[Rfam]
RNA sequence: UGAGUAAAUCAGGUGAUCGCGGGUGCCGGUCAGGACGGCGCCUGAGGAAAGUCCGAGCUCCGCAGGGCAGGGUGCUGGGUAAUACCCAGUGGGGGCGACCCCAAGGAAAGUGCCACAGAAAUGCAGACCGCCCGGAACAGAAGCCGGAUGCCAAAUGCCGGAGGAUCUUUGGGCUGAAGGCAACUCCUUCCCCAAUUAGAUCUGCCGGCUGUCAGGCUCCCUGCUUUUGUUACGGGCAAGGGUGGAACGGUGCGGUAAGAGCGCACCAGCGGCCGGGCGACCGGCCGGCUAGGUAAACCCCACCUGGAGCAAGACCGAAUAGGGGAGCGUGUGCGGCGGCCCGUCGUUGCUCCCGGGUCAGGUCGCUAGAGGCGGCUGGCAACAGCCGUCCCAGAUAGAUGAUCACCCACGACAGAACUCGGCUUACGAUUUGCUCACUAU
Number, nucleotide and partner (000 for none) at each position: 001u437002g436003a435004g434005u433006a432007a431008a430009u429010c428011a000012g407013g406014u405015g404016a403017u402018c401019g000020c044021g043022g042023g041024u040025g039026c038027c037028g036029g000030u000031c000032a000033g000034g000035a000036c028037g027038g026039c025040g024041c023042c022043u021044g020045a000046g000047g000048a000049a425050a424051g423052u000053c422054c421055g420056a419057g418058c309059u308060c307061c306062g000063c000064a000065g342066g341067g340068c339069a000070g305071g304072g303073u302074g301075c089076u088077g087078g086079g085080u000081a000082a000083u000084a000085c079086c078087c077088a076089g075090u104091g102092g101093g100094g099095g000096c000097g000098a000099c094100c093101c092102c091103a000104a090105g300106g299107a000108a000109a000110g298111u297112g294113c293114c292115a000116c000117a000118g000119a000120a000121a000122u000123g000124c000125a000126g000127a000128c241129c240130g237131c236132c235133c234134g233135g000136a231137a230138c229139a228140g227141a226142a225143g224144c223145c000146g000147g000148a000149u000150g000151c000152c000153a000154a000155a000156u000157g000158c000159c000160g000161g000162a000163g000164g000165a000166u000167c000168u000169u000170u000171g000172g000173g000174c000175u000176g000177a000178a000179g000180g000181c000182a000183a000184c000185u000186c000187c000188u000189u000190c000191c000192c000193c000194a000195a000196u000197u000198a000199g000200a000201u000202c000203u000204g000205c000206c000207g000208g000209c000210u000211g000212u000213c000214a000215g000216g000217c000218u000219c000220c000221c000222u000223g144224c143225u142226u141227u140228u139229g138230u137231u136232a000233c134234g133235g132236g131237c130238a000239a000240g129241g128242g000243u000244g000245g000246a000247a000248c000249g267250g266251u265252g264253c263254g262255g000256u000257a000258a000259g000260a000261g000262c254263g253264c252265a251266c250267c249268a000269g289270c287271g286272g285273c284274c283275g282276g281277g000278c000279g000280a000281c276282c275283g274284g273285c272286c271287g270288g000289c269290u000291a000292g114293g113294u112295a000296a000297a111298c110299c106300c105301c074302a073303c072304c071305u070306g061307g060308a059309g058310c000311a000312a000313g364314a363315c362316c361317g000318a000319a000320u000321a000322g000323g354324g353325g352326a351327g350328c349329g000330u000331g000332u000333g347334c346335g345336g344337c343338g000339g068340c067341c066342c065343g337344u336345c335346g334347u333348u000349g328350c327351u326352c325353c324354c323355g000356g000357g000358u000359c000360a000361g316362g315363u314364c313365g000366c000367u000368a000369g000370a000371g390372g389373c388374g387375g386376c385377u384378g383379g000380c000381a000382a000383c378384a377385g376386c375387c374388g373389u372390c371391c000392c000393a000394g000395a000396u000397a000398g000399a000400u000401g018402a017403u016404c015405a014406c013407c012408c000409a000410c000411g000412a000413c000414a000415g000416a000417a000418c057419u056420c055421g054422g053423c051424u050425u049426a000427c000428g010429a009430u008431u007432u006433g005434c004435u003436c002437a001438c000439u000440a000441u000
A member of the RNA family "Bacterial RNase P class A" from Pelotomaculum thermopropionicum, 441 nucleotides long. Rfam classes the family as a ribozyme. The organism belongs to Pelotomaculum thermopropionicum, within Bacteria.